[Rfam]
RNA sequence: CACACUGUCAUUCAUCCUUGUGAUGUCUGUACACCCCUUCCUCCGCCUCGUAUCUAUCUCAAAGAUUCAAGGAAGGAGACGAUCCGCGGUUUUUGUUGAUGUCUUUUGUCCGCUUUCCGCCCUGCAACUUUGUAUCUACAUUGAUGCAGAGGAAACAAAAACUAAUCUCGGAG
Numbered sequence: 001c002a003c004a005c006u007g008u009c010a011u012u013c014a015u016c017c018u019u020g021u022g023a024u025g026u027c028u029g030u031a032c033a034c035c036c037c038u039u040c041c042u043c044c045g046c047c048u049c050g051u052a053u054c055u056a057u058c059u060c061a062a063a064g065a066u067u068c069a070a071g072g073a074a075g076g077a078g079a080c081g082a083u084c085c086g087c088g089g090u091u092u093u094u095g096u097u098g099a100u101g102u103c104u105u106u107u108g109u110c111c112g113c114u115u116u117c118c119g120c121c122c123u124g125c126a127a128c129u130u131u132g133u134a135u136c137u138a139c140a141u142u143g144a145u146g147c148a149g150a151g152g153a154a155a156c157a158a159a160a161a162c163u164a165a166u167c168u169c170g171g172a173g
Base pairs, nucleotide, nucleotide: 007034008033011031013029014028016025018023039082040081041078042077043076044075047071048070050068059064098167099166100165101162102161104160105159106158107157108156109155120152121151122149123148124147125146131140132139133138
Rfam assigns this 173-nucleotide part of an RNA from Amorphotheca resinae to the family "Ascomycota telomerase RNA".
The family's RNA type in Rfam is non-coding RNA gene.
Rfam 15.1 lists 475 matches to the family in 456 species.
The literature on the family includes a 2013 paper in Nucleic Acids Res by Qi et al., "The common ancestral core of vertebrate and fungal telomerase RNAs".
Its family is annotated with telomere maintenance via telomerase, telomerase catalytic core complex and telomerase activity in the Gene Ontology.
NCBI's taxonomy places the organism under Eukaryota, saccharomyceta, Leotiomycetes, Helotiales, Amorphotheca resinae.